The family of this 165-nucleotide RNA sequence from Oryzias sinensis is "Small Cajal body specific RNA 1".
[Rfam]
RNA sequence: AUGCACCCAUACACGAGCCUGACAGUCUGCUCUGUCCCUGAUGUUUGAACAUCAGGACAGGUCUGUGGCUGCAUGGCUUCCAACGGUGCUACAGCAAAGUCAGCCGUGAGAUUUAAGCUGAUCAGUGGAAGCGACACUGAUGAGUUAUGACUCAGAGGUACACCU
Dot-bracket structure: ..(((((........((((...(((((..((..(((.((((((......)))))))))))......)))))...))))......))))).............(((................((((((.......))))))(((((....)))))..)))......

The family has 29 seed sequences and 715 matches in Rfam 15.1. Gene Ontology terms of the family: nucleolus, RNA processing and Cajal body.